[Rfam]
Rfam assigns this 134-nucleotide sequence from Lucilia cuprina to the family "U4atac minor spliceosomal RNA". Rfam describes the family as follows. U4atac is an essential component of the minor U12-type spliceosome complex which is required for removal of the rarer class of eukaryotic introns (AT-AC, U12-type). The literature on the family includes a 2005 paper in RNA by Lorkovic et al., "Evolutionary conservation of minor U12-type spliceosome between plants and humans". Its family is annotated with mRNA 5'-splice site recognition, spliceosomal tri-snRNP complex assembly and pre-mRNA 5'-splice site binding in the Gene Ontology. Lineage of the source: Eukaryota > Altocrustacea > Diptera > Oestroidea > Lucilia. Rfam 15.1 lists 1,648 matches to the family in 818 species. Rfam classes the family as a spliceosomal small nuclear RNA. The family is grouped with related families in Rfam's "U4 clan".
RNA sequence: UCCUUCCUUGUCAUGGGGAGCAUAAUACUCAGUGAACGUUUAGUGAGAGUAUUGAUGCUGACACCAUUGAUAUUUUAAACCCCUGUACGUUGGACUUGUUGAAAGUCUUUUAAACGUAUGGAAUUUUUGGACAU
Numbered sequence: 001u002c003c004u005u006c007c008u009u010g011u012c013a014u015g016g017g018g019a020g021c022a023u024a025a026u027a028c029u030c031a032g033u034g035a036a037c038g039u040u041u042a043g044u045g046a047g048a049g050u051a052u053u054g055a056u057g058c059u060g061a062c063a064c065c066a067u068u069g070a071u072a073u074u075u076u077a078a079a080c081c082c083c084u085g086u087a088c089g090u091u092g093g094a095c096u097u098g099u100u101g102a103a104a105g106u107c108u109u110u111u112a113a114a115c116g117u118a119u120g121g122a123a124u125u126u127u128u129g130g131a132c133a134u
Base pairs, nucleotide, nucleotide: 005019006018007017008016009015020058021057022056023055024053025052026051027050028049029048030047036044037043083121084120085119086118087117088116091112092111093107094106095105096104